[Rfam]
This 97-nucleotide sequence from Aedes aegypti belongs to the Rfam family "mir-286 microRNA precursor family". The sequence is in the family's curated seed alignment. Rfam links the family to the GO terms RISC complex and miRNA-mediated post-transcriptional gene silencing. For this family Rfam cites "Direct sequencing and expression analysis of a large number of miRNAs in Aedes aegypti and a multispecies survey of novel mosquito miRNAs" (Li et al., BMC Genomics, 2009). Taxonomically the source falls in Stegomyia (Eukaryota, Protostomia, Mandibulata, Culicidae).
RNA sequence: AAGUCCUGGGGCGAUUGUCGGCUUAGUCGCUGUAUCAUUUCAACUGCUGUGCAGUUCUUCGCUAGUGACUAGACCGAACACUCGUAUCCCAGGCCUU
Numbered sequence: 001a002a003g004u005c006c007u008g009g010g011g012c013g014a015u016u017g018u019c020g021g022c023u024u025a026g027u028c029g030c031u032g033u034a035u036c037a038u039u040u041c042a043a044c045u046g047c048u049g050u051g052c053a054g055u056u057c058u059u060c061g062c063u064a065g066u067g068a069c070u071a072g073a074c075c076g077a078a079c080a081c082u083c084g085u086a087u088c089c090c091a092g093g094c095c096u097u
Base pairs, nucleotide, nucleotide: 008090009089010088011087013085016080017079018078019076020075021074024071025070026069027068028067030065031064